[Rfam]
RNA sequence: GGGCACCUACGGGGGCCUAUAACCUUGGCACCUUAGUAGUUGGCUUUGAGAUCAAAACCAGCGAGCAGGGGCCUUCAUCUACGCAGAGAGCACGCUCUUUGCAUGCACACGGAAGACAGAAA
Numbered sequence: 001g002g003g004c005a006c007c008u009a010c011g012g013g014g015g016c017c018u019a020u021a022a023c024c025u026u027g028g029c030a031c032c033u034u035a036g037u038a039g040u041u042g043g044c045u046u047u048g049a050g051a052u053c054a055a056a057a058c059c060a061g062c063g064a065g066c067a068g069g070g071g072c073c074u075u076c077a078u079c080u081a082c083g084c085a086g087a088g089a090g091c092a093c094g095c096u097c098u099u100u101g102c103a104u105g106c107a108c109a110c111g112g113a114a115g116a117c118a119g120a121a122a
Base pairs, nucleotide, nucleotide: 001018002017003016004015006014007013008012027102030099039098